A member of the RNA family "6S / SsrS RNA" from Streptococcus pyogenes, 197 nucleotides long.
The family's consensus secondary structure is taken from published work.
The sequence is in the family's curated seed alignment.
Rfam describes the family as follows. E. coli 6S RNA was the first non coding RNA to be sequenced, but its function was unknown until recently. It consists of 184 nucleotides that fold into an extended hairpin structure with a large single-stranded internal bulge. The 6S RNA specifically associates with RNA polymerase holoenzyme containing the sigma70 specificity factor.
Rfam classes the family as a non-coding RNA gene.
The organism belongs to Streptococcus pyogenes serotype M3, within Bacteria.

[Rfam]
RNA sequence: ACAUUGCUGUGGCAUACGAAUCCACAUCUAAGUGUUGACCGACUAUUUCUUUGUAUUUUCGGGAAACAAAGACUCUUUCUAGUCUGCAAGCCGUUUCACGCGGACGCAACUUCCAAGAAAGAGCGCGUUACCCACCUGCUUAUACUGCGCGGGCUCAAUACAAAAACGUGGAUCACCGGUGCCAAUACAGCAUUCUU
Numbered sequence: 001a002c003a004u005u006g007c008u009g010u011g012g013c014a015u016a017c018g019a020a021u022c023c024a025c026a027u028c029u030a031a032g033u034g035u036u037g038a039c040c041g042a043c044u045a046u047u048u049c050u051u052u053g054u055a056u057u058u059u060c061g062g063g064a065a066a067c068a069a070a071g072a073c074u075c076u077u078u079c080u081a082g083u084c085u086g087c088a089a090g091c092c093g094u095u096u097c098a099c100g101c102g103g104a105c106g107c108a109a110c111u112u113c114c115a116a117g118a119a120a121g122a123g124c125g126c127g128u129u130a131c132c133c134a135c136c137u138g139c140u141u142a143u144a145c146u147g148c149g150c151g152g153g154c155u156c157a158a159u160a161c162a163a164a165a166a167c168g169u170g171g172a173u174c175a176c177c178g179g180u181g182c183c184a185a186u187a188c189a190g191c192a193u194u195c196u197u
Base pairs, nucleotide, nucleotide: 003194005192006191007190008189009188010187011186012182013181014180015179017178018177032161033160034159035158036157037156038155039153040152061133062132063131065129066128067127074122075121076120077119078118079117080116086107087106091103092102093101094100